[Rfam]
RNA sequence: GUAAGUGGAGAUAAAAACACAGUUUCUGUUGGUAGUCAGAACCUAUAUAAAUUUAAUAUAGCAGUAACCUGCCCUCCUGGGGUUGUCCAUUCUCUAGAGAUUUUAA
Numbered sequence: 001g002u003a004a005g006u007g008g009a010g011a012u013a014a015a016a017a018c019a020c021a022g023u024u025u026c027u028g029u030u031g032g033u034a035g036u037c038a039g040a041a042c043c044u045a046u047a048u049a050a051a052u053u054u055a056a057u058a059u060a061g062c063a064g065u066a067a068c069c070u071g072c073c074c075u076c077c078u079g080g081g082g083u084u085g086u087c088c089a090u091u092c093u094c095u096a097g098a099g100a101u102u103u104u105a106a
Base pairs, nucleotide, nucleotide: 006096007095008094009093010092011091022042023041025040026039027038028037043061044060045059046058047057048056071083072082073081074080
RNA: azaaromatic riboswitch aptamer (yjdF RNA)
Organism: Clostridium amylolyticum